Annotation
A member of the RNA family "Y RNA" from Pan troglodytes, 96 nucleotides long. The family's RNA type in Rfam is non-coding RNA gene. Pairs were carried over by alignment from the consensus structure, which is taken from published work.
[Rfam]
RNA sequence: UGCUGGUGUCCAUGGUGGUGGGUUAUCAGAACUUAUUAAUGUCACUGUCACUAAAGUUGGUAUAUAACCCCCCACUGCUAAAUUUGACUAGCUUAA
Numbered sequence: 001u002g003c004u005g006g007u008g009u010c011c012a013u014g015g016u017g018g019u020g021g022g023u024u025a026u027c028a029g030a031a032c033u034u035a036u037u038a039a040u041g042u043c044a045c046u047g048u049c050a051c052u053a054a055a056g057u058u059g060g061u062a063u064a065u066a067a068c069c070c071c072c073c074a075c076u077g078c079u080a081a082a083u084u085u086g087a088c089u090a091g092c093u094u095a096a
Stems, first nucleotide, its partner, number of pairs: 002092006009086001012084001016080001017076006034062003038058002